[Rfam]
RNA sequence: UACUGUUUGUGAUGAUGAAUUCUAAGCAAUGGGAAUCUCUCUGAAGAAGACUGAGGAGGACUCUUGAUCUGAAACAGUA
Numbered sequence: 001u002a003c004u005g006u007u008u009g010u011g012a013u014g015a016u017g018a019a020u021u022c023u024a025a026g027c028a029a030u031g032g033g034a035a036u037c038u039c040u041c042u043g044a045a046g047a048a049g050a051c052u053g054a055g056g057a058g059g060a061c062u063c064u065u066g067a068u069c070u071g072a073a074a075c076a077g078u079a
Base pairs, nucleotide, nucleotide: 001079002078003077004076005075006074007073
About this RNA:
The family of this 79-nucleotide RNA sequence from Anas platyrhynchos is "Small nucleolar RNA SNORD79". Rfam 15.1 lists 784 matches to the family in 651 species. Gene Ontology terms of the family: nucleolus and RNA processing. About the family: snoRNA U79 or Z22 is found in intron 7 of the gas5 gene in humans and is also present in mice. The literature on the family includes a 1998 paper in Mol Cell Biol by Smith and Steitz, "Classification of gas5 as a multi-small-nucleolar-RNA (snoRNA) host gene and a member of the 5'-terminal oligopyrimidine gene family reveals common features of snoRNA host genes".